[Rfam]
RNA sequence: GGAUAGCAUUCUUUUGCUAUCCCCGACUAAUAACACAAUAACACGUGGAAAAGUUAUUAUGCGUGUCAUUGCUUUAUUGGCCGGAAAUAGCAAAAAUUGUUAUUC
Numbered sequence: 001g002g003a004u005a006g007c008a009u010u011c012u013u014u015u016g017c018u019a020u021c022c023c024c025g026a027c028u029a030a031u032a033a034c035a036c037a038a039u040a041a042c043a044c045g046u047g048g049a050a051a052a053g054u055u056a057u058u059a060u061g062c063g064u065g066u067c068a069u070u071g072c073u074u075u076a077u078u079g080g081c082c083g084g085a086a087a088u089a090g091c092a093a094a095a096a097u098u099g100u101u102a103u104u105c
Stems, first nucleotide, its partner, number of pairs: 002104004012095009023084003027080007036071004041066007049058002
RNA: MIR6274 microRNA precursor family